RNA sequence: CUUGAUGGACCCCAGCCAGAGCGGCUGCUCGUCGCUGUGCUCCUUGCCGUAGGUGGCCAGCAGCGCCUGCGCCUC
Number, nucleotide and partner (000 for none) at each position: 001c000002u000003u000004g000005a000006u000007g000008g000009a000010c000011c000012c000013c000014a026015g025016c024017c023018a000019g000020a000021g000022c000023g017024g016025c015026u014027g000028c000029u000030c000031g000032u000033c069034g000035c000036u000037g000038u065039g064040c000041u000042c000043c060044u059045u000046g000047c056048c055049g054050u000051a000052g000053g000054u049055g048056g047057c000058c000059a044060g043061c000062a000063g000064c039065g038066c000067c000068u000069g033070c000071g000072c000073c000074u000075c000
Source information:
A member of the RNA family "ASpks TB sRNA" from Actinacidiphila glaucinigra, 75 nucleotides long. Rfam classes the family as an antisense RNA. The family has 77 seed sequences and 9,052 matches in Rfam 15.1. It scores 76 bits against the family's covariance model. The source organism's lineage runs through Bacteria, Bacillati, Actinomycetota, Actinomycetes and Actinacidiphila.